[Rfam]
RNA sequence: CGAAAAGAUUAUUGUAUUUGACUAUAUUCACAGCGUAAAAUAGGGGAUUGCAUUCUUUUUAAACGGAAAGUGAAUCAAUUAACAUAAUAGACUCCU
Number, nucleotide and partner (000 for none) at each position: 001c000002g095003a000004a093005a000006a000007g000008a000009u090010u089011a088012u087013u086014g085015u084016a000017u082018u081019u000020g080021a079022c000023u077024a000025u000026a075027u074028u073029c072030a071031c070032a000033g000034c065035g064036u063037a059038a058039a057040a056041u000042a054043g053044g000045g000046g000047a000048u000049u000050g000051c000052a000053u043054u042055c000056u040057u039058u038059u037060u000061a000062a000063a036064c035065g034066g000067a000068a000069a000070g031071u030072g029073a028074a027075u026076c000077a023078a000079u021080u020081a018082a017083c000084a015085u014086a013087a012088u011089a010090g009091a000092c000093u004094c000095c002096u000